[Rfam]
Annotation
A member of the RNA family "sodF sRNA" from Streptomyces sp. NTH33, 110 nucleotides long. The literature on the family includes a 2014 paper in Nucleic Acids Res by Kim et al., "Inverse regulation of Fe- and Ni-containing SOD genes by a Fur family regulator Nur through small RNA processed from 3'UTR of the sodF mRNA". A search with the family's covariance model found it, with a score of 55 bits. The organism belongs to Streptomyces, within Bacteria.
RNA sequence: GCCUGCGCCCGGUGAUCGUCUUCUCACCCUUCACCCGGGCGGGCGGAAAGCAAGGAAGCCCCCGCGAGUGGGCUCCCCCCUUGGGGGAGAGCGACUCGCGGGGGCUUCCG
Numbered sequence: 001g002c003c004u005g006c007g008c009c010c011g012g013u014g015a016u017c018g019u020c021u022u023c024u025c026a027c028c029c030u031u032c033a034c035c036c037g038g039g040c041g042g043g044c045g046g047a048a049a050g051c052a053a054g055g056a057a058g059c060c061c062c063c064g065c066g067a068g069u070g071g072g073c074u075c076c077c078c079c080c081u082u083g084g085g086g087g088a089g090a091g092c093g094a095c096u097c098g099c100g101g102g103g104g105c106u107u108c109c110g
Stems, first nucleotide, its partner, number of pairs: 001044001003043002006041005012034004018028001054109015